[Rfam]
RNA sequence: GUGAUACUCAAACUGUGGGGGCACUUUUUUGGGUUAAUUGAAGAAAAGUGCCGCCCAGUUUUUGAGUGUUAC
Numbered sequence: 001g002u003g004a005u006a007c008u009c010a011a012a013c014u015g016u017g018g019g020g021g022c023a024c025u026u027u028u029u030u031g032g033g034u035u036a037a038u039u040g041a042a043g044a045a046a047a048g049u050g051c052c053g054c055c056c057a058g059u060u061u062u063u064g065a066g067u068g069u070u071a072c
Stems, first nucleotide, its partner, number of pairs: 004069009016057003020052006027045003